[Rfam]
Shown here is a 327-nucleotide sequence from Motacilla alba, a member of the family "7SK RNA". 7SK was discovered as an abundant small nuclear RNA in the mid-70s but a possible function has only recently been suggested. Two independent studies have found that 7SK RNA binds the CDK9/cyclin T complex (known as elongation factor P-TEFb). P-TEFb activates transcription by phosphorylating the C-terminal domain of RNA polymerase II. This process is negatively regulated by the 7SK RNP. The secondary structure of 7SK RNA shown here was proposed by Wasserman and Steitz on the basis of chemical modification and enzymatic cleavage experiments. This family contains a number of annotated pseudogenes and 7SK derived repeats. The organism belongs to Motacilla, within Eukaryota. The match comes from Rfam's covariance-model search (232 bits). A reference for the family is Wassarman and Steitz (1991), "Structural analyses of the 7SK ribonucleoprotein (RNP), the most abundant human small RNP of unknown function", Mol Cell Biol.
RNA sequence: GGAUAUGAAGGCGAUCUGGCUGUGACAUGUCACCCCACUGCUCUCUGGGGUUGAUUCAGCUGAUCUAGCUGGCAAGGUGAGUGUCCCCUUCCUCCCUCAAUGUUCCAUGUGUGUCCCUCCUGAAGCUGCACCCUCAGUCACAGAGGAUGACAUCCCCAAUAGAGAUGUUAUCAUUCAUCGGUCAAGGGUACAAGGCAGCUGUGCUCCCCUGCCACAACCUCCAAACAAGCUCAAGGUCCAUUCGUAGGAGAACACAGGGUAGUCAAGCUUCCAGGACUGCAGACACACCCAAGUGAGGUGCUCCCAUGGAGCAGUUUUCCAUGUUUU
Numbered sequence: 001g002g003a004u005a006u007g008a009a010g011g012c013g014a015u016c017u018g019g020c021u022g023u024g025a026c027a028u029g030u031c032a033c034c035c036c037a038c039u040g041c042u043c044u045c046u047g048g049g050g051u052u053g054a055u056u057c058a059g060c061u062g063a064u065c066u067a068g069c070u071g072g073c074a075a076g077g078u079g080a081g082u083g084u085c086c087c088c089u090u091c092c093u094c095c096c097u098c099a100a101u102g103u104u105c106c107a108u109g110u111g112u113g114u115c116c117c118u119c120c121u122g123a124a125g126c127u128g129c130a131c132c133c134u135c136a137g138u139c140a141c142a143g144a145g146g147a148u149g150a151c152a153u154c155c156c157c158a159a160u161a162g163a164g165a166u167g168u169u170a171u172c173a174u175u176c177a178u179c180g181g182u183c184a185a186g187g188g189u190a191c192a193a194g195g196c197a198g199c200u201g202u203g204c205u206c207c208c209c210u211g212c213c214a215c216a217a218c219c220u221c222c223a224a225a226c227a228a229g230c231u232c233a234a235g236g237u238c239c240a241u242u243c244g245u246a247g248g249a250g251a252a253c254a255c256a257g258g259g260u261a262g263u264c265a266a267g268c269u270u271c272c273a274g275g276a277c278u279g280c281a282g283a284c285a286c287a288c289c290c291a292a293g294u295g296a297g298g299u300g301c302u303c304c305c306a307u308g309g310a311g312c313a314g315u316u317u318u319c320c321a322u323g324u325u326u327u
Stems, first nucleotide, its partner, number of pairs: 001106003006099003010095002013091002018088002024085005029078003033072002035068001037066001040065001042063002045059002115167001117164003120137004125133001138159001145155003198268003204262002207259005219250004225245002228242002291327003295322001297320002300315003304311001